[Rfam]
RNA sequence: GUAACCUUUAAGUUUAGUCCCGUGAGGCUAAGAAGGAAUCAUGCAAAAGAACACUAGGUGCGCUUAGUUAGUAAGUUGUGUGGGCUACAUGGUACCCUUGUACCUUUUUAAACUGUAACCAACAUCCUCCUAUCCUCAUACGGGUAGGAGGAUUUUUUGU
Numbered sequence: 001g002u003a004a005c006c007u008u009u010a011a012g013u014u015u016a017g018u019c020c021c022g023u024g025a026g027g028c029u030a031a032g033a034a035g036g037a038a039u040c041a042u043g044c045a046a047a048a049g050a051a052c053a054c055u056a057g058g059u060g061c062g063c064u065u066a067g068u069u070a071g072u073a074a075g076u077u078g079u080g081u082g083g084g085c086u087a088c089a090u091g092g093u094a095c096c097c098u099u100g101u102a103c104c105u106u107u108u109u110a111a112a113c114u115g116u117a118a119c120c121a122a123c124a125u126c127c128u129c130c131u132a133u134c135c136u137c138a139u140a141c142g143g144g145u146a147g148g149a150g151g152a153u154u155u156u157u158u159g160u
Stems, first nucleotide, its partner, number of pairs: 005036005014031006045076001049072001053068006122155001124153012
A member of the RNA family "PyrR binding site" from Enterococcus faecalis, 160 nucleotides long. The organism belongs to Enterococcus, within Bacteria. Rfam's curators put it in the seed alignment. The family's RNA type in Rfam is cis-regulatory element.